Background: This 93-nucleotide RNA sequence from Luzuriaga radicans belongs to the Rfam family "Plastid-rps12 3UTR RNA". Rfam's curators put it in the seed alignment. A reference for the family is Richter et al. (2023), "Retrograde signaling in plants: A critical review focusing on the GUN pathway and beyond", Plant Commun. Plastid rpl20 is a non-coding RNA (ncRNA) recognised in plastids. Lineage of the source: Eukaryota > Tracheophyta > Mesangiospermae > Petrosaviidae > Luzuriaga.
[Rfam]
RNA sequence: GGUUUCCAUUGGUGCAAAUCCAAUCACCUUGAUUUGAGAUGAGAAAACCCCCAUUGGUAGCAAAGGUUAUCCAUUAAGCGGAGGAAAUUUUAU
Dot-bracket structure: ........((((.......)))).........................(.((((.((((((....)))))).)).....)).)..........
Numbered sequence: 001g002g003u004u005u006c007c008a009u010u011g012g013u014g015c016a017a018a019u020c021c022a023a024u025c026a027c028c029u030u031g032a033u034u035u036g037a038g039a040u041g042a043g044a045a046a047a048c049c050c051c052c053a054u055u056g057g058u059a060g061c062a063a064a065g066g067u068u069a070u071c072c073a074u075u076a077a078g079c080g081g082a083g084g085a086a087a088u089u090u091u092a093u
Stems, first nucleotide, its partner, number of pairs: 009023004049083001051081002053074002056071006